[Rfam]
RNA sequence: GGGGUGUGCUCAGAGCAGGGGGCCCGAAGAAUGCCUCCUCUGUUUACAACACACCCAAUAGGAAUCUGGGGUCAUUGUGACAAGGGACACAGAGCUUGUGACCUCCCUACAAACAAAUGCCCUACACAU
Number, nucleotide and partner (000 for none) at each position: 001g000002g056003g055004g054005u053006g052007u051008g050009c000010u000011c000012a000013g045014a044015g043016c042017a041018g040019g039020g038021g037022g035023c000024c033025c000026g000027a000028a000029g000030a000031a000032u000033g024034c000035c022036u000037c021038c020039u019040c018041u017042g016043u015044u014045u013046a000047c000048a000049a000050c008051a007052c006053a005054c004055c003056c002057a000058a000059u000060a000061g000062g000063a000064a000065u000066c000067u000068g000069g122070g121071g120072u119073c000074a000075u000076u115077g114078u113079g000080a000081c000082a000083a000084g104085g103086g102087a000088c100089a099090c098091a097092g096093a000094g000095c000096u092097u091098g090099u089100g088101a000102c086103c085104u084105c000106c000107c000108u000109a000110c000111a000112a000113a078114c077115a076116a000117a000118u000119g072120c071121c070122c069123u000124a000125c000126a000127c000128a000129u000
RNA: Small nucleolar RNA SNORA11